RNA: SAM riboswitch aptamer (S box leader)
Organism: Bacillus aerolatus
RNA sequence: CUCUUAUCAAGAGAGGCGGAGGGAUGUGCCCGAUGAAGCCCGGCAACCGUCAACAGCUGUUUUUGCUGUUGAAAAGGUGCCAAUUCACACAAAGCGACAUGCUUUGGAAGAUGAGAG
Numbered sequence: 001c002u003c004u005u006a007u008c009a010a011g012a013g014a015g016g017c018g019g020a021g022g023g024a025u026g027u028g029c030c031c032g033a034u035g036a037a038g039c040c041c042g043g044c045a046a047c048c049g050u051c052a053a054c055a056g057c058u059g060u061u062u063u064u065g066c067u068g069u070u071g072a073a074a075a076g077g078u079g080c081c082a083a084u085u086c087a088c089a090c091a092a093a094g095c096g097a098c099a100u101g102c103u104u105u106g107g108a109a110g111a112u113g114a115g116a117g
Stems, first nucleotide, its partner, number of pairs: 001117008013041001015040003021031003025089004042081004047077002050072008085109001090106006